[Rfam]
RNA sequence: CCGGUCGGCGGGCCGAAUCCCAGGGCGCGCGCCCGGGAACCGGGGACCCACCAGCCGGGACGACCCGGCCGGGGUGAAUUCGCAGGCCGGGAGGCCCGCGAUAGGGCGCACUCCAGCCCGAACCCGUCAGCUAACCCGGUAGGCCAACGAGGAGAGGAGCA
Numbered sequence: 001c002c003g004g005u006c007g008g009c010g011g012g013c014c015g016a017a018u019c020c021c022a023g024g025g026c027g028c029g030c031g032c033c034c035g036g037g038a039a040c041c042g043g044g045g046a047c048c049c050a051c052c053a054g055c056c057g058g059g060a061c062g063a064c065c066c067g068g069c070c071g072g073g074g075u076g077a078a079u080u081c082g083c084a085g086g087c088c089g090g091g092a093g094g095c096c097c098g099c100g101a102u103a104g105g106g107c108g109c110a111c112u113c114c115a116g117c118c119c120g121a122a123c124c125c126g127u128c129a130g131c132u133a134a135c136c137c138g139g140u141a142g143g144c145c146a147a148c149g150a151g152g153a154g155a156g157g158a159g160c161a
Base pairs, nucleotide, nucleotide: 011145012144013143014142018038019037020036039140040139041138042137043136044135049071072125073124074123080101081100082099083098104119105118106117107116
This 161-nucleotide sequence from Actinomadura litoris belongs to the Rfam family "c-di-AMP riboswitch aptamer (ydaO/yuaA leader)". About the family: This family represents a conserved RNA structure found upstream of the ydaO and yuaA genes in Bacillus subtilis and related genes in other bacteria. The base pairs follow the family's consensus structure.